The record is a 443-nucleotide sequence from Desulfamplus magnetovallimortis, which matches "Bacterial RNase P class A" in Rfam. Ribonuclease P (RNase P) is a ubiquitous endoribonuclease, found in archaea, bacteria and eukarya as well as chloroplasts and mitochondria. Lineage of the source: Bacteria > Thermodesulfobacteriota > Desulfobacteria > Desulfobacterales > Desulfamplus.
RNA sequence: GAAGCAGUACAGGUGAUCGCUGGAUUGAAAAAUCUGGAGGAAAGUCCGAACACCAAAGGGCAGGACGCUCCAUAACGUGGAGUCACGGUGACGUGAAGGAAAGUGCAACAGAGAGCAGACCGCCCCUUUUUCUGUCUGAAAAACACUGGAUCUCAUGAUUUAUCACUUGUUGAUAUUUCAAUGACAUCUUUUGCCAUUCAGCAGCAGGGGGUAAGGGUGAAACGGUGCGGUAAGAGCGCACCAGUUUUCCAGGUGACUGGAAAAGCUUGGUAAACCCCGUCCGGUGCAAGACCAAAUAGGGAAGUGUUUGAGGGCUGCCCGUCCAAGCUUCCGGGUAGGUCGCAUGAGGUGUGCGGCAACGUACAUCCCAGAUGAAUGGUCACCACCCUGUUUCGGGGUAACCUGAACAGGGAACAGAAUUCGGCUUAUGGACUGCUUUCACC
Numbered sequence: 001g002a003a004g005c006a007g008u009a010c011a012g013g014u015g016a017u018c019g020c021u022g023g024a025u026u027g028a029a030a031a032a033u034c035u036g037g038a039g040g041a042a043a044g045u046c047c048g049a050a051c052a053c054c055a056a057a058g059g060g061c062a063g064g065a066c067g068c069u070c071c072a073u074a075a076c077g078u079g080g081a082g083u084c085a086c087g088g089u090g091a092c093g094u095g096a097a098g099g100a101a102a103g104u105g106c107a108a109c110a111g112a113g114a115g116c117a118g119a120c121c122g123c124c125c126c127u128u129u130u131u132c133u134g135u136c137u138g139a140a141a142a143a144c145a146c147u148g149g150a151u152c153u154c155a156u157g158a159u160u161u162a163u164c165a166c167u168u169g170u171u172g173a174u175a176u177u178u179c180a181a182u183g184a185c186a187u188c189u190u191u192u193g194c195c196a197u198u199c200a201g202c203a204g205c206a207g208g209g210g211g212u213a214a215g216g217g218u219g220a221a222a223c224g225g226u227g228c229g230g231u232a233a234g235a236g237c238g239c240a241c242c243a244g245u246u247u248u249c250c251a252g253g254u255g256a257c258u259g260g261a262a263a264a265g266c267u268u269g270g271u272a273a274a275c276c277c278c279g280u281c282c283g284g285u286g287c288a289a290g291a292c293c294a295a296a297u298a299g300g301g302a303a304g305u306g307u308u309u310g311a312g313g314g315c316u317g318c319c320c321g322u323c324c325a326a327g328c329u330u331c332c333g334g335g336u337a338g339g340u341c342g343c344a345u346g347a348g349g350u351g352u353g354c355g356g357c358a359a360c361g362u363a364c365a366u367c368c369c370a371g372a373u374g375a376a377u378g379g380u381c382a383c384c385a386c387c388c389u390g391u392u393u394c395g396g397g398g399u400a401a402c403c404u405g406a407a408c409a410g411g412g413a414a415c416a417g418a419a420u421u422c423g424g425c426u427u428a429u430g431g432a433c434u435g436c437u438u439u440c441a442c443c
Stems, first nucleotide, its partner, number of pairs: 001439008010430002012384007020037007042427003046424005051286004058320004063282005068082005083097001084095004098277002103275002105271002120216002122212007130204001224242006244266001245264008290341004300332006312324004348367008